[Rfam]
This 53-nucleotide sequence from Salmo trutta belongs to the Rfam family "Guanidine-II riboswitch aptamer (mini-ykkC)". Rfam describes the family as follows. Simpler in structure and has fewer highly conserved nucleotide positions than the ykkC-yxkD leader. Despite this each of its two stem-loop structures directly bind free guanidine. Therefore, mini-ykkC RNA motif represents a distinct class of guanidine-sensing RNAs. The family's consensus secondary structure is taken from published work. The organism belongs to Salmo, within Eukaryota. It scores 39 bits against the family's covariance model.
RNA sequence: CGGGGGGGACGACCCCCCCCAGAUACAGACCACUACCGGGGGGGACGACCCCC
Numbered sequence: 001c002g003g004g005g006g007g008g009a010c011g012a013c014c015c016c017c018c019c020c021a022g023a024u025a026c027a028g029a030c031c032a033c034u035a036c037c038g039g040g041g042g043g044g045a046c047g048a049c050c051c052c053c
Stems, first nucleotide, its partner, number of pairs: 002019007040053005